This 115-nucleotide sequence from Clostridiales bacterium PH28_bin88 belongs to the Rfam family "TPP riboswitch aptamer (THI element)". Taxonomically the source falls in Eubacteriales (Bacteria, Bacillati, Bacillota, Clostridia).
[Rfam]
RNA sequence: CAUAGGCAUCAUGGGGAGCUGGAUGAGUCUGGCUGAGAGGGAAUUCCCACUGAUAUUCCGACCCAUUGUACCUGAUCUGGGUAAUGCCAGCGUAGGGAGGUGUACCAAGCGUGCA
Numbered sequence: 001c002a003u004a005g006g007c008a009u010c011a012u013g014g015g016g017a018g019c020u021g022g023a024u025g026a027g028u029c030u031g032g033c034u035g036a037g038a039g040g041g042a043a044u045u046c047c048c049a050c051u052g053a054u055a056u057u058c059c060g061a062c063c064c065a066u067u068g069u070a071c072c073u074g075a076u077c078u079g080g081g082u083a084a085u086g087c088c089a090g091c092g093u094a095g096g097g098a099g100g101u102g103u104a105c106c107a108a109g110c111g112u113g114c115a
Stems, first nucleotide, its partner, number of pairs: 006103005012065004018033005040059005071096004077090004